[Rfam]
RNA sequence: AGGUGAUGUUUCCUAACCAUUAUCAAUGGAGACACUCGGCUGUACUGUGGGUGUGUAUAAGUACCACCUUAGACACACUUGUUGUCGAUAGUAUAGUGUGAGGGAGGGUUAGAUGCCCU
Numbered sequence: 001a002g003g004u005g006a007u008g009u010u011u012c013c014u015a016a017c018c019a020u021u022a023u024c025a026a027u028g029g030a031g032a033c034a035c036u037c038g039g040c041u042g043u044a045c046u047g048u049g050g051g052u053g054u055g056u057a058u059a060a061g062u063a064c065c066a067c068c069u070u071a072g073a074c075a076c077a078c079u080u081g082u083u084g085u086c087g088a089u090a091g092u093a094u095a096g097u098g099u100g101a102g103g104g105a106g107g108g109u110u111a112g113a114u115g116c117c118c119u
Stems, first nucleotide, its partner, number of pairs: 002018003007034007035102004039097008049069005055064003072086004105119005
A member of the RNA family "epsC RNA" from Priestia veravalensis, 119 nucleotides long. The organism belongs to Priestia, within Bacteria. By type it is a cis-regulatory element. Rfam 15.1 lists 450 matches to the family in 334 species. Pairs were carried over by alignment from the consensus structure, which is taken from published work.